[Rfam]
RNA sequence: AUGAUUGUCAUGGGAGAGUCAUUGGAGAUGUUCCAAUGCACCGAAGGAGUGAUACUUUCAGGUUUUGUGACCAUGGCCGGACG
Numbered sequence: 001a002u003g004a005u006u007g008u009c010a011u012g013g014g015a016g017a018g019u020c021a022u023u024g025g026a027g028a029u030g031u032u033c034c035a036a037u038g039c040a041c042c043g044a045a046g047g048a049g050u051g052a053u054a055c056u057u058u059c060a061g062g063u064u065u066u067g068u069g070a071c072c073a074u075g076g077c078c079g080g081a082c083g
Stems, first nucleotide, its partner, number of pairs: 007077007020038007040063003043059002047057003
The family of this 83-nucleotide sequence from Acetivibrio thermocellus is "Glycine riboswitch aptamer". It scores 42 bits against the family's covariance model. The source organism's lineage runs through Bacteria, Bacillati, Bacillota, Clostridia and Acetivibrio thermocellus.